[Rfam]
RNA sequence: CCUGCUAUGCGACUAGCAGUAGCCUAGGGAGACGUGCGUCACUGGUAACGGUGGGGUAUGAAGCUCUCCUGACAAUGUAGCCCCCGCAAAGGGUGUUCAAGGAUCGCGAGGUCUUCGGGCAGAGACUCCGAGCAGCAACGGGGUCGAGGAG
Numbered sequence: 001c002c003u004g005c006u007a008u009g010c011g012a013c014u015a016g017c018a019g020u021a022g023c024c025u026a027g028g029g030a031g032a033c034g035u036g037c038g039u040c041a042c043u044g045g046u047a048a049c050g051g052u053g054g055g056g057u058a059u060g061a062a063g064c065u066c067u068c069c070u071g072a073c074a075a076u077g078u079a080g081c082c083c084c085c086g087c088a089a090a091g092g093g094u095g096u097u098c099a100a101g102g103a104u105c106g107c108g109a110g111g112u113c114u115u116c117g118g119g120c121a122g123a124g125a126c127u128c129c130g131a132g133c134a135g136c137a138a139c140g141g142g143g144u145c146g147a148g149g150a151g
Stems, first nucleotide, its partner, number of pairs: 002019006028069005033060005039054006084093002094121004104111002125144006
Dot-bracket structure: .((((((......))))))........((((((((((.((((((....)))))).)))))....)))))..............((......))((((......((....))......))))...((((((........)))))).......
RNA: Group II catalytic intron D1-D4-7